[Rfam]
A member of the RNA family "Selenocysteine transfer RNA" from Trichonephila clavipes, 83 nucleotides long.
NCBI's taxonomy places the organism under Eukaryota, Opisthokonta, Metazoa, Ecdysozoa, Trichonephila.
The family has 109 seed sequences and 4,211 matches in Rfam 15.1.
The match comes from Rfam's covariance-model search (51 bits).
On this family, see Lowe and Eddy, Nucleic Acids Res 1997: "tRNAscan-SE: a program for improved detection of transfer RNA genes in genomic sequence".

RNA sequence: GCCCAGAUGAUCAUCGGUGUCCGGUGCGGGCUUGAAACCCGUAGCGGUAUGAGGUGGCGGUGGUUCGAUUCCACCUUCUGGGC
Number, nucleotide and partner (000 for none) at each position: 001g083002c082003c081004c080005a079006g078007a077008u000009g075010a000011u000012c024013a000014u000015c000016g020017g000018u000019g000020u016021c000022c000023g000024g012025u043026g042027c041028g040029g039030g038031c000032u000033u000034g000035a000036a000037a000038c030039c029040c028041g027042u026043a025044g000045c056046g055047g000048u000049a000050u000051g000052a000053g000054g000055u046056g045057g000058c000059g000060g074061u073062g072063g071064u000065u000066c000067g000068a000069u000070u000071c063072c062073a061074c060075c009076u000077u007078c006079u005080g004081g003082g002083c001